[Rfam]
RNA sequence: GGCCUAACCUCGAAGUAAAGUAGUUCAGUAGGGUCAGCUGAUACUACUAAUCUACUCUACUUCAAAUUUGGGCCC
Numbered sequence: 001g002g003c004c005u006a007a008c009c010u011c012g013a014a015g016u017a018a019a020g021u022a023g024u025u026c027a028g029u030a031g032g033g034u035c036a037g038c039u040g041a042u043a044c045u046a047c048u049a050a051u052c053u054a055c056u057c058u059a060c061u062u063c064a065a066a067u068u069u070g071g072g073c074c075c
Stems, first nucleotide, its partner, number of pairs: 001074007012063006019056005025050001027048004033042003